[Rfam]
RNA: Potassium channel RNA editing signal
RNA sequence: CUGGGAUAUGGGGAUAUGUAUCCACGGACAUGGUCAGGCAUGCUGGUGGGAGCCCUGUGUGCACUGGCGGGAGUGCUCACCAUAGCCAUGCCCGUGCCUGUGAUAGUUAACAAU
Numbered sequence: 001c002u003g004g005g006a007u008a009u010g011g012g013g014a015u016a017u018g019u020a021u022c023c024a025c026g027g028a029c030a031u032g033g034u035c036a037g038g039c040a041u042g043c044u045g046g047u048g049g050g051a052g053c054c055c056u057g058u059g060u061g062c063a064c065u066g067g068c069g070g071g072a073g074u075g076c077u078c079a080c081c082a083u084a085g086c087c088a089u090g091c092c093c094g095u096g097c098c099u100g101u102g103a104u105a106g107u108u109a110a111c112a113a114u
Base pairs, nucleotide, nucleotide: 002113004111008107009106011104014101015100016099018097019096020095021094037077038076039075040074050062